[Rfam]
RNA sequence: AUGGUCUGGGGAAGGGCUCCUGUGCUGUUGAACUUGCCCAGCAGGUGGGUUCAGCCUUGUAUCAGGAAGCCUGACCUUGACCUAAAGUAAAUUCCUAGGAAGUCUUUCCCAGGAUUUGAAUUUGCAGUAACAGGUGUGAGCAUUCUAGCAGCAGUUUGAUGAUCAUGUAUGAUACCACAAGCAGAA
Numbered sequence: 001a002u003g004g005u006c007u008g009g010g011g012a013a014g015g016g017c018u019c020c021u022g023u024g025c026u027g028u029u030g031a032a033c034u035u036g037c038c039c040a041g042c043a044g045g046u047g048g049g050u051u052c053a054g055c056c057u058u059g060u061a062u063c064a065g066g067a068a069g070c071c072u073g074a075c076c077u078u079g080a081c082c083u084a085a086a087g088u089a090a091a092u093u094c095c096u097a098g099g100a101a102g103u104c105u106u107u108c109c110c111a112g113g114a115u116u117u118g119a120a121u122u123u124g125c126a127g128u129a130a131c132a133g134g135u136g137u138g139a140g141c142a143u144u145c146u147a148g149c150a151g152c153a154g155u156u157u158g159a160u161g162a163u164c165a166u167g168u169a170u171g172a173u174a175c176c177a178c179a180a181g182c183a184g185a186a
Stems, first nucleotide, its partner, number of pairs: 003082004008077003015071004019066004024062001027055004032050003094113003098108004121181004127175003131171002137165003141161004147156003